[Rfam]
RNA sequence: AUACUUACCUGGCAGGGGAGAGACCAUGACCAUGAAGGUGUUUUUCCCAGUGGCUUAUACAUUGCACUCCAGAUGUGCUGAUCCUUGCAAUUUCCCCAAAUGUGGGAAACUUGACCGCAUAAUUUGUGGUAGUAGGGGACUGCAUUCAUGCUUUCCUCUG
Numbered sequence: 001a002u003a004c005u006u007a008c009c010u011g012g013c014a015g016g017g018g019a020g021a022g023a024c025c026a027u028g029a030c031c032a033u034g035a036a037g038g039u040g041u042u043u044u045u046c047c048c049a050g051u052g053g054c055u056u057a058u059a060c061a062u063u064g065c066a067c068u069c070c071a072g073a074u075g076u077g078c079u080g081a082u083c084c085u086u087g088c089a090a091u092u093u094c095c096c097c098a099a100a101u102g103u104g105g106g107a108a109a110c111u112u113g114a115c116c117g118c119a120u121a122a123u124u125u126g127u128g129g130u131a132g133u134a135g136g137g138g139a140c141u142g143c144a145u146u147c148a149u150g151c152u153u154u155c156c157u158c159u160g
Stems, first nucleotide, its partner, number of pairs: 012118002015115001016048006023042001025040003049085002052079003056075003088113003091109003095105002134159006142151003
Rfam assigns this 160-nucleotide RNA from Ictidomys tridecemlineatus to the family "U1 spliceosomal RNA". The organism belongs to Ictidomys, within Eukaryota. Rfam links the family to the GO terms U1 snRNP, mRNA 5'-splice site recognition and pre-mRNA 5'-splice site binding. The family's consensus secondary structure is taken from published work.